[Rfam]
RNA sequence: CAUACCAAACAACUGUUCUUUUUUGACUUAUUUUUUCUUCCAUAACUGGGGGCGAACUCGUUUUCGAAAGAAAAGUCAAAAACGAACAGAAGCCUCCCAAAAUGGGGGGCUUUUUUAU
Numbered sequence: 001c002a003u004a005c006c007a008a009a010c011a012a013c014u015g016u017u018c019u020u021u022u023u024u025g026a027c028u029u030a031u032u033u034u035u036u037c038u039u040c041c042a043u044a045a046c047u048g049g050g051g052g053c054g055a056a057c058u059c060g061u062u063u064u065c066g067a068a069a070g071a072a073a074a075g076u077c078a079a080a081a082a083c084g085a086a087c088a089g090a091a092g093c094c095u096c097c098c099a100a101a102a103u104g105g106g107g108g109g110c111u112u113u114u115u116u117a118u
Stems, first nucleotide, its partner, number of pairs: 015087004020082010031071003035067002038051004052061003089113010
RNA: Phenylalanine leader peptide